[Rfam]
RNA sequence: AUAUGUGUGAGGAGCGAACCAGAAGAGGCACCGAGACGAAACACGGCCAGUCGUCGGUGCCUUUUUUGAU
Number, nucleotide and partner (000 for none) at each position: 001a000002u000003a000004u000005g000006u000007g000008u000009g000010a000011g000012g000013a000014g000015c000016g000017a000018a000019c000020c000021a000022g000023a065024a064025g063026a062027g061028g000029c000030a058031c057032c056033g055034a054035g052036a051037c050038g000039a000040a000041a000042c000043a000044c000045g000046g000047c000048c000049a000050g037051u036052c035053g000054u034055c033056g032057g031058u030059g000060c000061c027062u026063u025064u024065u023066u000067u000068g000069a000070u000